The family of this 113-nucleotide sequence from Paenibacillus radicis is "Guanidine-I riboswitch aptamer". It scores 78 bits against the family's covariance model. From the family's description: This family represents a conserved RNA structure found upstream of the ykkC and yxkD genes in Bacillus subtilis and related genes in other bacteria. Its family is annotated with regulation of gene expression in the Gene Ontology. The pairing is the family consensus, mapped onto this sequence.
RNA sequence: AAAAAAGUUGUCUAGGGUUCCGCUGAUGAAUGGGGUCGUUCAGUCAGGACUGGACCGAGAGACGGCGUAUGGCGCUUUGCCAUAUAACACGGAAGGAUAAAAGCCUGGGAGAU
Numbered sequence: 001a002a003a004a005a006a007g008u009u010g011u012c013u014a015g016g017g018u019u020c021c022g023c024u025g026a027u028g029a030a031u032g033g034g035g036u037c038g039u040u041c042a043g044u045c046a047g048g049a050c051u052g053g054a055c056c057g058a059g060a061g062a063c064g065g066c067g068u069a070u071g072g073c074g075c076u077u078u079g080c081c082a083u084a085u086a087a088c089a090c091g092g093a094a095g096g097a098u099a100a101a102a103g104c105c106u107g108g109g110a111g112a113u
Stems, first nucleotide, its partner, number of pairs: 007066006015056002020053002022050001023047005067085007088108001090111001094106003